[Rfam]
RNA sequence: CUCCUCGCUCAAAGAAUCGCAUUCAAAGCUUACGCACAGGAGAGGGAAGAGAAUAGCCCUUCACGGGCUUAUUCUAUUCUCUCUUCAGACCGCAACUACUAGCUUUGGGAGAAAGUCCCCGGACACCCUGCGCCCCCGUCUUAAAACCGCGAGGGUUCCUCACAACAAGCCAGGCACUGCGGAAACGCGCCGCCAUAGAAGCAUUUCUCAUUGCGGCUUACGCCUUUUUACCUUCCCUUCUCUUUUCUCACUCUUCUUUUAGAAGGGAGGAGGAAAGAAAGAAGGGCUCGUCGCUGUUCCUACCCGACUCUGUGGAAGUUUUUAUUCUGCAGAGAAAACAAUGGUGGUUUGGACGGGAUGGGGCCUUUUUGGCGAAGGAUAGGUUGCCAUUCGUCGUGUUUCGAUAGUCAUGCGAUUGCUUGGUUUCCCAUAUGUAUUUUGAUCAUAUAUGUGUGGAAUCAAGUAACUCGAUGGGGCUUAUUCAUGAGGCGAGGA
Numbered sequence: 001c002u003c004c005u006c007g008c009u010c011a012a013a014g015a016a017u018c019g020c021a022u023u024c025a026a027a028g029c030u031u032a033c034g035c036a037c038a039g040g041a042g043a044g045g046g047a048a049g050a051g052a053a054u055a056g057c058c059c060u061u062c063a064c065g066g067g068c069u070u071a072u073u074c075u076a077u078u079c080u081c082u083c084u085u086c087a088g089a090c091c092g093c094a095a096c097u098a099c100u101a102g103c104u105u106u107g108g109g110a111g112a113a114a115g116u117c118c119c120c121g122g123a124c125a126c127c128c129u130g131c132g133c134c135c136c137c138g139u140c141u142u143a144a145a146a147c148c149g150c151g152a153g154g155g156u157u158c159c160u161c162a163c164a165a166c167a168a169g170c171c172a173g174g175c176a177c178u179g180c181g182g183a184a185a186c187g188c189g190c191c192g193c194c195a196u197a198g199a200a201g202c203a204u205u206u207c208u209c210a211u212u213g214c215g216g217c218u219u220a221c222g223c224c225u226u227u228u229u230a231c232c233u234u235c236c237c238u239u240c241u242c243u244u245u246u247c248u249c250a251c252u253c254u255u256c257u258u259u260u261a262g263a264a265g266g267g268a269g270g271a272g273g274a275a276a277g278a279a280a281g282a283a284g285g286g287c288u289c290g291u292c293g294c295u296g297u298u299c300c301u302a303c304c305c306g307a308c309u310c311u312g313u314g315g316a317a318g319u320u321u322u323u324a325u326u327c328u329g330c331a332g333a334g335a336a337a338a339c340a341a342u343g344g345u346g347g348u349u350u351g352g353a354c355g356g357g358a359u360g361g362g363g364c365c366u367u368u369u370u371g372g373c374g375a376a377g378g379a380u381a382g383g384u385u386g387c388c389a390u391u392c393g394u395c396g397u398g399u400u401u402c403g404a405u406a407g408u409c410a411u412g413c414g415a416u417u418g419c420u421u422g423g424u425u426u427c428c429c430a431u432a433u434g435u436a437u438u439u440u441g442a443u444c445a446u447a448u449a450u451g452u453g454u455g456g457a458a459u460c461a462a463g464u465a466a467c468u469c470g471a472u473g474g475g476g477c478u479u480a481u482u483c484a485u486g487a488g489g490c491g492a493g494g495a
Stems, first nucleotide, its partner, number of pairs: 002495007009487003015417006023109001024107006039086010113479003117476004145157004314388002328379001330377001363373003419463009
Record summary: Shown here is a 495-nucleotide RNA from Histoplasma capsulatum, a member of the family "RNase MRP". Rfam's curators write: RNase MRP is an enzymatically active ribonucleoprotein with two distinct roles in eukaryotes. Rfam classes the family as a ribozyme.